[Rfam]
RNA sequence: AUAAUGAUACUCCUGCUUAUAAUUAAGUAGCUUGGAAGAUAAUUCGAAGAGGUGAAACUCCUGUGA
Number, nucleotide and partner (000 for none) at each position: 001a000002u000003a000004a000005u000006g000007a000008u000009a000010c000011u000012c063013c030014u029015g028016c027017u026018u025019a024020u000021a000022a000023u000024u019025a018026a017027g016028u015029a014030g013031c049032u048033u047034g000035g045036a044037a043038g000039a000040u000041a000042a000043u037044u036045c035046g000047a033048a032049g031050a062051g061052g060053u000054g000055a000056a000057a000058c000059u000060c052061c051062u050063g012064u000065g000066a000
The family of this 66-nucleotide RNA sequence is "pemK RNA". Rfam's curators put it in the seed alignment. Rfam classes the family as a cis-regulatory element.